[Rfam]
RNA sequence: UGAGUCAGCCAGACAGUCGCUGUUGGAACCGCUUCUUUUUGCGCGCAAGCGCAAGUCGAGGCAUCUGAUGGAGGAAAGUCCGGGCUCCAUAGAGCAGAACGCCAGGUAACGCCUGGGGGGUGAAAGCCCACGGAAAGUGCAACAGAGAGUAGACCGCCCGUCCAUGCGCUCUGGCGCUGGAAAGGUAAGGGUGAAAGGGUGCGGUAAGAGCGCACCGCGCGGCUGGUAACAGUUCGUGGCACGGCAAACCCCGUUCGGAGCAAGACCAAAUAGGGAUCCAUCGGUGUGGCUCGCACUGGAUCCGGGUAGGUCGCUAGAGGUCAGCAGUGAUGCUGAUCCCAGAUGAAUGACUGUCCAAGACAGAACCCGGCUUACCGGCUGACUCAACUU
Numbered sequence: 001u002g003a004g005u006c007a008g009c010c011a012g013a014c015a016g017u018c019g020c021u022g023u024u025g026g027a028a029c030c031g032c033u034u035c036u037u038u039u040u041g042c043g044c045g046c047a048a049g050c051g052c053a054a055g056u057c058g059a060g061g062c063a064u065c066u067g068a069u070g071g072a073g074g075a076a077a078g079u080c081c082g083g084g085c086u087c088c089a090u091a092g093a094g095c096a097g098a099a100c101g102c103c104a105g106g107u108a109a110c111g112c113c114u115g116g117g118g119g120g121u122g123a124a125a126g127c128c129c130a131c132g133g134a135a136a137g138u139g140c141a142a143c144a145g146a147g148a149g150u151a152g153a154c155c156g157c158c159c160g161u162c163c164a165u166g167c168g169c170u171c172u173g174g175c176g177c178u179g180g181a182a183a184g185g186u187a188a189g190g191g192u193g194a195a196a197g198g199g200u201g202c203g204g205u206a207a208g209a210g211c212g213c214a215c216c217g218c219g220c221g222g223c224u225g226g227u228a229a230c231a232g233u234u235c236g237u238g239g240c241a242c243g244g245c246a247a248a249c250c251c252c253g254u255u256c257g258g259a260g261c262a263a264g265a266c267c268a269a270a271u272a273g274g275g276a277u278c279c280a281u282c283g284g285u286g287u288g289g290c291u292c293g294c295a296c297u298g299g300a301u302c303c304g305g306g307u308a309g310g311u312c313g314c315u316a317g318a319g320g321u322c323a324g325c326a327g328u329g330a331u332g333c334u335g336a337u338c339c340c341a342g343a344u345g346a347a348u349g350a351c352u353g354u355c356c357a358a359g360a361c362a363g364a365a366c367c368c369g370g371c372u373u374a375c376c377g378g379c380u381g382a383c384u385c386a387a388c389u390u
Stems, first nucleotide, its partner, number of pairs: 001386010012355007020071008076373003080370005085260004092292004097256005102116005117131001118129004132251002137249002139245002154190002156186003161181004198216006217240001218238005223232003264312004274303006283297005319338008
RNA: Bacterial RNase P class A